[Rfam]
ffh sRNA: a 52-nucleotide sequence from Roseovarius aestuarii. The base pairs follow the family's consensus structure, which is taken from published work. For this family Rfam cites "Identification of candidate structured RNAs in the marine organism 'Candidatus Pelagibacter ubique'" (Meyer et al., BMC Genomics, 2009). It scores 69 bits against the family's covariance model.
RNA sequence: UUUCCCCGGGAUCGACCUCCGUCAGCGCGUUGCGCCCACGGGGGCGUUAGUG
Number, nucleotide and partner (000 for none) at each position: 001u000002u000003u000004c000005c000006c000007c000008g000009g000010g000011a000012u000013c000014g000015a000016c044017c043018u042019c041020c040021g039022u038023c000024a000025g035026c034027g033028c032029g000030u000031u000032g028033c027034g026035c025036c000037c000038a022039c021040g020041g019042g018043g017044g016045c000046g000047u000048u000049a000050g000051u000052g000